[Rfam]
RNA sequence: CUGUCCCUUUAAAGUACCGUGGCGCUUUAAGGAUCUAACUUUAACAGCAGGAUGAAGGAACUCUCCACCAAACCCAGGGAGGAGACUGAACGAGGCUCUUUGGAUCCUGUCUGGAGUCACAGAC
Dot-bracket structure: .(((((..((...(((...(..........)....)).)......))..)))))........(((((......(((((((...(.((......))))))))))........)))))........
Numbered sequence: 001c002u003g004u005c006c007c008u009u010u011a012a013a014g015u016a017c018c019g020u021g022g023c024g025c026u027u028u029a030a031g032g033a034u035c036u037a038a039c040u041u042u043a044a045c046a047g048c049a050g051g052a053u054g055a056a057g058g059a060a061c062u063c064u065c066c067a068c069c070a071a072a073c074c075c076a077g078g079g080a081g082g083a084g085a086c087u088g089a090a091c092g093a094g095g096c097u098c099u100u101u102g103g104a105u106c107c108u109g110u111c112u113g114g115a116g117u118c119a120c121a122g123a124c
Stems, first nucleotide, its partner, number of pairs: 002054005009047002014039001015037002020031001063116005074103007084096001086095002
Small nucleolar RNA SNORA26: a 124-nucleotide RNA from Cricetulus griseus. Rfam classes the family as an H/ACA-box small nucleolar RNA. Its Rfam clan is "SNORA27 clan". On this family, see Huttenhofer et al., EMBO J 2001: "RNomics: an experimental approach that identifies 201 candidates for novel, small, non-messenger RNAs in mouse". A search with the family's covariance model found it, with a score of 58 bits. Rfam describes the family as follows. The snoRNA HBI-6 belong to the H/ACA family of snoRNAs, guiding the pseudouridylation of position U4522 if the 28S rRNA. HBI-6 is the human orthologue of mouse MBI-6 snoRNA. Pairs were carried over by alignment from the consensus structure, which was predicted with RNAalifold.